[Rfam]
RNA: Mammalian CPEB3 ribozyme
Organism: Alligator sinensis
RNA sequence: CUAUGCUACAUAGGUCAUAGCAGAAGCACUCAUGGUGCGGCCUGUCAGAUUCCAAUGAAUUUGCAAAUUCUGCU
Numbered sequence: 001c002u003a004u005g006c007u008a009c010a011u012a013g014g015u016c017a018u019a020g021c022a023g024a025a026g027c028a029c030u031c032a033u034g035g036u037g038c039g040g041c042c043u044g045u046c047a048g049a050u051u052c053c054a055a056u057g058a059a060u061u062u063g064c065a066a067a068u069u070c071u072g073c074u
Stems, first nucleotide, its partner, number of pairs: 013042004019074007026038003046063007